[Rfam]
RNA sequence: CUACGAUAAUGGCAAAUCCAUUGAAAAGUGGAGACGCAAAGCUACGGGCCUAAGGAGAUACCUCUAAGGUCGCCGGGUUACCGAA
Numbered sequence: 001c002u003a004c005g006a007u008a009a010u011g012g013c014a015a016a017u018c019c020a021u022u023g024a025a026a027a028g029u030g031g032a033g034a035c036g037c038a039a040a041g042c043u044a045c046g047g048g049c050c051u052a053a054g055g056a057g058a059u060a061c062c063u064c065u066a067a068g069g070u071c072g073c074c075g076g077g078u079u080a081c082c083g084a085a
Stems, first nucleotide, its partner, number of pairs: 012037002017032006040079004045075003048070003055064003
RNA: c-di-GMP-I riboswitch aptamer